[Rfam]
RNA sequence: AUGCAUCUCUGACAGGUCUGUAGCAGUGCUGUCUGCUGCUAAGGUUUGUAAUACAGAUGCAAAAGACGUGUCCUUGUGCUUUCUGUCUGCCUGAUUGUGGUGGCCAAGAUUGAGUAAAGGAAUACAGGG
Numbered sequence: 001a002u003g004c005a006u007c008u009c010u011g012a013c014a015g016g017u018c019u020g021u022a023g024c025a026g027u028g029c030u031g032u033c034u035g036c037u038g039c040u041a042a043g044g045u046u047u048g049u050a051a052u053a054c055a056g057a058u059g060c061a062a063a064a065g066a067c068g069u070g071u072c073c074u075u076g077u078g079c080u081u082u083c084u085g086u087c088u089g090c091c092u093g094a095u096u097g098u099g100g101u102g103g104c105c106a107a108g109a110u111u112g113a114g115u116a117a118a119g120g121a122a123u124a125c126a127g128g129g
Stems, first nucleotide, its partner, number of pairs: 002061007010050002013048006021038006071121005079112001082109003087103005
A member of the RNA family "Small nucleolar RNA SNORA31" from Otolemur garnettii, 129 nucleotides long.
On this family, see Huttenhofer et al., EMBO J 2001: "RNomics: an experimental approach that identifies 201 candidates for novel, small, non-messenger RNAs in mouse".
ACA31 (SNORA31) belongs to the H/ACA class of snoRNAs which are thought to guide the sites of modification of uridines to pseudouridines. ACA31 is predicted to guide the pseudouridylation of U3713 in 28S rRNA and U218 in 18S rRNA. This family includes the mouse homologue snoMBI-161.